Description
The record is a 133-nucleotide RNA sequence from Desulfosporosinus sp. Sb-LF, which matches "Ribosomal protein L10 leader" in Rfam. A reference for the family is Yakhnin et al. (2015), "Ribosomal protein L10(L12)4 autoregulates expression of the Bacillus subtilis rplJL operon by a transcription attenuation mechanism", Nucleic Acids Res. Taxonomically the source falls in Desulfosporosinus (Bacteria, Bacillati, Eubacteriales, Desulfitobacteriaceae). The base pairs follow the family's consensus structure, which was predicted with CMfinder. Rfam classes the family as a cis-regulatory leader.
RNA sequence: AGAAUUGAAUGAUGUCCACUGUAGAAAGCAGGAGCCGAAAGGCUUAAUGCCCUGCCGAGGUUGGAAGAUACGCCGAUAGAUACUAAUUUGGCAUUCUUAACCUCUGCAUAUGCAGAGGUUUUUUGCUGGAUUU
Numbered sequence: 001a002g003a004a005u006u007g008a009a010u011g012a013u014g015u016c017c018a019c020u021g022u023a024g025a026a027a028g029c030a031g032g033a034g035c036c037g038a039a040a041g042g043c044u045u046a047a048u049g050c051c052c053u054g055c056c057g058a059g060g061u062u063g064g065a066a067g068a069u070a071c072g073c074c075g076a077u078a079g080a081u082a083c084u085a086a087u088u089u090g091g092c093a094u095u096c097u098u099a100a101c102c103u104c105u106g107c108a109u110a111u112g113c114a115g116a117g118g119u120u121u122u123u124u125g126c127u128g129g130a131u132u133u
Base pairs, nucleotide, nucleotide: 028055029054030053031052032051034043035042036041101118102117103116104115105114106113107112